[Rfam]
RNA sequence: GGAUGUGAGGGCAAUCUGGCUGCGACAUCUGUCACCCCAUUGAUCGCCAGGGUUGAUUCGGCUGAUCUGGCUGGCUAGGCGGGUGUCCCCUUCCUCCAUUACUGCUCCAUGUGCAUCUCUCCCGAAGCUGCGCACUUGGUUGAAGAGGACGACCUUCCCUGAUAGAGAUGUACCAUUCAUUGGUCAAGGGUAUAUGGUAGCUACACUCCCCUGCUAGAACUUCCAAACAAACUCAAGGUCCAUUUGUAGGAGAAUGUAGGGUUUUAAAAUGCUUUUUUAAAAAAGUCCAGUGAAGUUCCUGCUCACU
Numbered sequence: 001g002g003a004u005g006u007g008a009g010g011g012c013a014a015u016c017u018g019g020c021u022g023c024g025a026c027a028u029c030u031g032u033c034a035c036c037c038c039a040u041u042g043a044u045c046g047c048c049a050g051g052g053u054u055g056a057u058u059c060g061g062c063u064g065a066u067c068u069g070g071c072u073g074g075c076u077a078g079g080c081g082g083g084u085g086u087c088c089c090c091u092u093c094c095u096c097c098a099u100u101a102c103u104g105c106u107c108c109a110u111g112u113g114c115a116u117c118u119c120u121c122c123c124g125a126a127g128c129u130g131c132g133c134a135c136u137u138g139g140u141u142g143a144a145g146a147g148g149a150c151g152a153c154c155u156u157c158c159c160u161g162a163u164a165g166a167g168a169u170g171u172a173c174c175a176u177u178c179a180u181u182g183g184u185c186a187a188g189g190g191u192a193u194a195u196g197g198u199a200g201c202u203a204c205a206c207u208c209c210c211c212u213g214c215u216a217g218a219a220c221u222u223c224c225a226a227a228c229a230a231a232c233u234c235a236a237g238g239u240c241c242a243u244u245u246g247u248a249g250g251a252g253a254a255u256g257u258a259g260g261g262u263u264u265u266a267a268a269a270u271g272c273u274u275u276u277u278u279a280a281a282a283a284a285g286u287c288c289a290g291u292g293a294a295g296u297u298c299c300u301g302c303u304c305a306c307u
Stems, first nucleotide, its partner, number of pairs: 001108003005102004010097002014092001018090002024087010035074002037070003042067004046062003117170001118168004122139004127135001140162003147158003200270001202268001209261006221252004227247005
Dot-bracket structure: (((.((((.((..(...((....((((((((((.(((((..(((((((...........))).)))))))..))...)))))))))).)).)...)).))))...)))........(((((((((.(.......)))))(((....(((......))).)))..)))).).............................(.(......((((((......((((..(((((...........))))).))))...))))))......).).....................................
RNA: 7SK RNA